Notes: The record is a 195-nucleotide RNA sequence from Loxodonta africana, which matches "Small nucleolar RNA ZL1" in Rfam. Its family is annotated with RNA processing and nucleolus in the Gene Ontology. It is annotated as a C/D-box small nucleolar RNA. About the family: Host gene TRRAP. Predicted target U2@U47. Only GU-rich region is homologous to other known snoRNAs. Conserved in vertebrates.
RNA sequence: GUUGAAGCAAAGUGAUGAGCAUUACUGGCUGGAGCCCCAAAGAGGCACGUGUGUGUAUGUGGGUGUGAAUCUGUGUGCCUGUCUGGGUGUGAACACGUGUAUGGGGUGUGUGACUGUGUCUGACUGGCUGUAGGGAACUAGUUACGUGCCUUCUGUUGGACGAUGACAGUCAAACUGAUAAGAUCUGAUUGCUUC
Numbered sequence: 001g002u003u004g005a006a007g008c009a010a011a012g013u014g015a016u017g018a019g020c021a022u023u024a025c026u027g028g029c030u031g032g033a034g035c036c037c038c039a040a041a042g043a044g045g046c047a048c049g050u051g052u053g054u055g056u057a058u059g060u061g062g063g064u065g066u067g068a069a070u071c072u073g074u075g076u077g078c079c080u081g082u083c084u085g086g087g088u089g090u091g092a093a094c095a096c097g098u099g100u101a102u103g104g105g106g107u108g109u110g111u112g113a114c115u116g117u118g119u120c121u122g123a124c125u126g127g128c129u130g131u132a133g134g135g136a137a138c139u140a141g142u143u144a145c146g147u148g149c150c151u152u153c154u155g156u157u158g159g160a161c162g163a164u165g166a167c168a169g170u171c172a173a174a175c176u177g178a179u180a181a182g183a184u185c186u187g188a189u190u191g192c193u194u195c
Stems, first nucleotide, its partner, number of pairs: 004195007014185003026172006036106003041102001043100001045098002049094002052091005061083001065078003069074001108121001110119002124141004129136001143165002148161001150159002
Annotation
The literature on the family includes a 2013 paper in Genome Biol by Kishore et al., "Insights into snoRNA biogenesis and processing from PAR-CLIP of snoRNA core proteins and small RNA sequencing".